The record is a 139-nucleotide RNA sequence, which matches "IMES-2 RNA motif" in Rfam.
It is annotated as a non-coding RNA gene.
The literature on the family includes a 2009 paper in Nature by Weinberg et al., "Exceptional structured noncoding RNAs revealed by bacterial metagenome analysis".
The family's consensus secondary structure is taken from published work.
RNA sequence: AAUUUAACUGAGGGCGUAAGUUCUCAGCACUCAUCAAGAAGUAGGUUUAGGCUAAUUGCUUGGUGGUGAAAGUAGAGGGAAGGUAGCACUUCGACGCCUCUAAGUACGCUGUGGGAGUAGUGCUUAAAUCACACGGCAA
Number, nucleotide and partner (000 for none) at each position: 001a000002a000003u000004u000005u000006a000007a000008c027009u026010g025011a024012g023013g022014g021015c000016g000017u000018a000019a000020g000021u014022u013023c012024u011025c010026a009027g008028c068029a067030c066031u000032c065033a064034u000035c062036a061037a060038g059039a000040a057041g000042u000043a000044g053045g052046u051047u000048u000049a000050g000051g046052c045053u044054a000055a000056u000057u040058g000059c038060u037061u036062g035063g000064u033065g032066g030067u029068g028069a000070a000071a000072g000073u102074a101075g100076a099077g098078g097079g000080a000081a000082g000083g000084u000085a000086g123087c122088a121089c120090u119091u000092c000093g000094a000095c000096g000097c078098c077099u076100c075101u074102a073103a000104g000105u000106a000107c000108g137109c136110u135111g134112u133113g132114g000115g130116a129117g000118u000119a090120g089121u088122g087123c086124u000125u000126a000127a000128a000129u116130c115131a000132c113133a112134c111135g110136g109137c108138a000139a000